The family of this 75-nucleotide RNA sequence from Rhodococcus sp. AD45 is "6C RNA". Taxonomically the source falls in Rhodococcus (Bacteria, Bacillati, Actinomycetes, Mycobacteriales). Gene Ontology term of the family: sporulation. The base pairs follow the family's consensus structure, which is taken from published work.
RNA sequence: CUGUGUUCAGCCCAACCCCCCGGGGCUGAACAGACAAGACAACCCCCGCCUCCCCCCAGGCGGGGGUUGUCCACU
Dot-bracket structure: .(.((((((((((.........)))))))))).)...(((((((((((((........)))))))))))))....